RNA sequence: ACCUCUGAGCCAUCUCUCCAGCCCAAGUGUCUCUUUUUUUAAAAACCCUAAUUAUGGGCUGGAGAGAUGGCUCAGCGGU
Numbered sequence: 001a002c003c004u005c006u007g008a009g010c011c012a013u014c015u016c017u018c019c020a021g022c023c024c025a026a027g028u029g030u031c032u033c034u035u036u037u038u039u040u041a042a043a044a045a046c047c048c049u050a051a052u053u054a055u056g057g058g059c060u061g062g063a064g065a066g067a068u069g070g071c072u073c074a075g076c077g078g079u
Stems, first nucleotide, its partner, number of pairs: 002078002005075020
RNA: mir-3473 microRNA precursor family